[Rfam]
RNA sequence: AGCCCUACGGAUGUGCCACAUGGUCUGUUUCCUUGUACAAGUUCGCACGGGUUAGGCGGGGUUGUAGGGCGGCUCCUUCAACCUCGCCGCUUA
Numbered sequence: 001a002g003c004c005c006u007a008c009g010g011a012u013g014u015g016c017c018a019c020a021u022g023g024u025c026u027g028u029u030u031c032c033u034u035g036u037a038c039a040a041g042u043u044c045g046c047a048c049g050g051g052u053u054a055g056g057c058g059g060g061g062u063u064g065u066a067g068g069g070c071g072g073c074u075c076c077u078u079c080a081a082c083c084u085c086g087c088c089g090c091u092u093a
Base pairs, nucleotide, nucleotide: 001053002052003051004050005049008045009044010043011042012041014039015038018036019035020034022032023031055088056087057086058085059084060083061082062081063080064079066077067076068075069074
Record summary
Shown here is a 93-nucleotide RNA sequence from Xanthomonas citri, a member of the family "Xanthomonas sRNA asX6". On this family, see Schmidtke et al., Nucleic Acids Res 2011: "Genome-wide transcriptome analysis of the plant pathogen Xanthomonas identifies sRNAs with putative virulence functions". It is annotated as a small RNA. It is one of the family's seed sequences. The organism belongs to Xanthomonas citri pv. citri, within Bacteria.